[Rfam]
RNA: Ascomycota telomerase RNA, nucleotides 207 to 428
RNA sequence: UCCCCUACAGUUCUCCGAUUCCGAUUUUCCGCAAGGAAUGGUUCGCCCCGCUCUGGAGGUGGCUGGAGUACCGCAACACGUCGCAGCUUCGGUUCCUGUAUCAGGAUGUUCUCGCCAAGCUCGCCGCGUUUGGAUUUGUUGCGGGCCAAUUGUUGCGCCCUUCGAGGACAACCCACCACCGCCAGAGCGAAUCUGUCUCGGAACUUAACCCUAAGUACAUGU
Numbered sequence: 001u002c003c004c005c006u007a008c009a010g011u012u013c014u015c016c017g018a019u020u021c022c023g024a025u026u027u028u029c030c031g032c033a034a035g036g037a038a039u040g041g042u043u044c045g046c047c048c049c050g051c052u053c054u055g056g057a058g059g060u061g062g063c064u065g066g067a068g069u070a071c072c073g074c075a076a077c078a079c080g081u082c083g084c085a086g087c088u089u090c091g092g093u094u095c096c097u098g099u100a101u102c103a104g105g106a107u108g109u110u111c112u113c114g115c116c117a118a119g120c121u122c123g124c125c126g127c128g129u130u131u132g133g134a135u136u137u138g139u140u141g142c143g144g145g146c147c148a149a150u151u152g153u154u155g156c157g158c159c160c161u162u163c164g165a166g167g168a169c170a171a172c173c174c175a176c177c178a179c180c181g182c183c184a185g186a187g188c189g190a191a192u193c194u195g196u197c198u199c200g201g202a203a204c205u206u207a208a209c210c211c212u213a214a215g216u217a218c219a220u221g222u
Base pairs, nucleotide, nucleotide: 009205010204011203015201016200017199018198